Small nucleolar RNA R16: an 84-nucleotide RNA sequence from Cicer arietinum. The literature on the family includes a 2002 paper in Curr Biol by Marker et al., "Experimental RNomics: identification of 140 candidates for small non-messenger RNAs in the plant Arabidopsis thaliana". Rfam links the family to the GO terms nucleolus and RNA processing. The match comes from Rfam's covariance-model search (52 bits). Rfam classes the family as a C/D-box small nucleolar RNA.
[Rfam]
RNA sequence: AUAGCAAAUGAUGAUAAUUGUUUUUAUCUUUUCACACUGAGAUUCUGUGAAGACCAAAAAAUCCACUUAUUAUCUGAUGUCUUA
Numbered sequence: 001a002u003a004g005c006a007a008a009u010g011a012u013g014a015u016a017a018u019u020g021u022u023u024u025u026a027u028c029u030u031u032u033c034a035c036a037c038u039g040a041g042a043u044u045c046u047g048u049g050a051a052g053a054c055c056a057a058a059a060a061a062u063c064c065a066c067u068u069a070u071u072a073u074c075u076g077a078u079g080u081c082u083u084a
Stems, first nucleotide, its partner, number of pairs: 003082002005079002